[Rfam]
RNA sequence: CUGGAGGCAGAUACACAAAUUGGGCUGAAAUGCUACUCUAAUUGUCACCAUACUUCCAUAGAAUAAAUUGUUUUUUGAUGACCAAGACAUUGAGUGAAAUUGCAAUGGACAGAUAUGAGGUAAUUUCUU
Numbered sequence: 001c002u003g004g005a006g007g008c009a010g011a012u013a014c015a016c017a018a019a020u021u022g023g024g025c026u027g028a029a030a031u032g033c034u035a036c037u038c039u040a041a042u043u044g045u046c047a048c049c050a051u052a053c054u055u056c057c058a059u060a061g062a063a064u065a066a067a068u069u070g071u072u073u074u075u076u077g078a079u080g081a082c083c084a085a086g087a088c089a090u091u092g093a094g095u096g097a098a099a100u101u102g103c104a105a106u107g108g109a110c111a112g113a114u115a116u117g118a119g120g121u122a123a124u125u126u127c128u129u
Stems, first nucleotide, its partner, number of pairs: 002058006015045004022038003068123007082108003088102002

The record is a 129-nucleotide RNA sequence from Chinchilla lanigera, which matches "Small Cajal body specific RNA 8" in Rfam. The match comes from Rfam's covariance-model search (105 bits). The source organism's lineage runs through Eukaryota, Chordata, Eutheria, Euarchontoglires and Chinchilla. About the family: scaRNAs are a specific class of small nuclear RNAs which localise to the Cajal bodies and guide the modification of RNA polymerase II transcribed spliceosomal RNAs U1, U2, U4, U5 and U12. U92 belong to the H/ACA box class of guide RNAs as it has the predicted hairpin-hinge-hairpin-tail structure, conserved H/ACA-box motifs and is found associated with GAR1. By type it is a small Cajal body RNA.